This 77-nucleotide sequence from Mola mola belongs to the Rfam family "mir-196 microRNA precursor family". The match comes from Rfam's covariance-model search (72 bits).
[Rfam]
RNA sequence: UGUGUGACGUAGGUAGUUUCAAGUUGUUGGGCUGUAAGAUUCUGAUCACAGGAACUUGAAACUGCCUGAGUCACACU
Numbered sequence: 001u002g003u004g005u006g007a008c009g010u011a012g013g014u015a016g017u018u019u020c021a022a023g024u025u026g027u028u029g030g031g032c033u034g035u036a037a038g039a040u041u042c043u044g045a046u047c048a049c050a051g052g053a054a055c056u057u058g059a060a061a062c063u064g065c066c067u068g069a070g071u072c073a074c075a076c077u
Stems, first nucleotide, its partner, number of pairs: 003075006010068010022056004027051003031047001